Shown here is a 96-nucleotide RNA sequence from Lupinus angustifolius, a member of the family "Small nucleolar RNA Z43". Gene Ontology terms of the family: nucleolus and RNA processing. A search with the family's covariance model found it, with a score of 94 bits. Pairs were carried over by alignment from the consensus structure, which was predicted with PFOLD. The family's RNA type in Rfam is C/D-box small nucleolar RNA.
RNA sequence: GGACGAUGAUGAUUUAUAGUUAAGGUCUCGUUCGUCGUAAUCGGCCUUUUGGCCUUGCCGACCAUUCUGCUAUAUCACCACCCAUAUUCCGAGUCC
Numbered sequence: 001g002g003a004c005g006a007u008g009a010u011g012a013u014u015u016a017u018a019g020u021u022a023a024g025g026u027c028u029c030g031u032u033c034g035u036c037g038u039a040a041u042c043g044g045c046c047u048u049u050u051g052g053c054c055u056u057g058c059c060g061a062c063c064a065u066u067c068u069g070c071u072a073u074a075u076c077a078c079c080a081c082c083c084a085u086a087u088u089c090c091g092a093g094u095c096c
Stems, first nucleotide, its partner, number of pairs: 001096004046051001